[Rfam]
RNA sequence: GUACCUUUUAAAAUCAGCCAAUCCUCUGUUCUUAUUAGCUUGAUAUCUAAUACGAAGUCUAUAUGACUUCUAGCAUAUCGAACUGAUUUUUGAAAACCGGCAUAGCGCCUGGGGCUUGCUCCGGCUUUGCCACGGGUCUUCUCUGCAUUGCAGUACCGCAGAGCUAGGCCUAAUAAAC
Numbered sequence: 001g002u003a004c005c006u007u008u009u010a011a012a013a014u015c016a017g018c019c020a021a022u023c024c025u026c027u028g029u030u031c032u033u034a035u036u037a038g039c040u041u042g043a044u045a046u047c048u049a050a051u052a053c054g055a056a057g058u059c060u061a062u063a064u065g066a067c068u069u070c071u072a073g074c075a076u077a078u079c080g081a082a083c084u085g086a087u088u089u090u091u092g093a094a095a096a097c098c099g100g101c102a103u104a105g106c107g108c109c110u111g112g113g114g115c116u117u118g119c120u121c122c123g124g125c126u127u128u129g130c131c132a133c134g135g136g137u138c139u140u141c142u143c144u145g146c147a148u149u150g151c152a153g154u155a156c157c158g159c160a161g162a163g164c165u166a167g168g169c170c171u172a173a174u175a176a177a178c
Base pairs, nucleotide, nucleotide: 001009033052034051035050036049037048038047054070055069056068057067058066059065099131100130101129102128104126105125106124111122112121113120114119134171135170136169137168138167139166141163142162143161144160145159146158
Record summary:
This 178-nucleotide sequence from Trichogramma brassicae belongs to the Rfam family "U2 spliceosomal RNA". The organism belongs to Trichogramma, within Eukaryota. The base pairs follow the family's consensus structure, which is taken from published work. U2 is a small nuclear RNA (snRNA) component of the spliceosome (involved in pre-mRNA splicing). Its Rfam clan is "U2 clan".